[Rfam]
RNA: Group II catalytic intron D1-D4-5
Organism: Metabacillus harenarius
RNA sequence: CCUAACUUCAUAACCGAGGAUAGGAAUGAUAAAACCACGUAUUUUGAAACUAUCCCAUUAAUAUUCCUGCAUGCGUCAUAAUUGACUGAUUAUGGGGUCUGGAGCUCAGGUGAAGUCGGCAGAACAAAGGCUGAAGCCAUUCCGUGUGGAAAGGGUAUGCCAAUGGAUAUGCCGGAUGGCUGAAAA
Dot-bracket structure: .................((((((.......((((.......))))....))))))((((......((((((.((.((((((((....)))))))).)).)).....))))......(((((...((..(((((....((.....)))))..........))..))....)))))))))........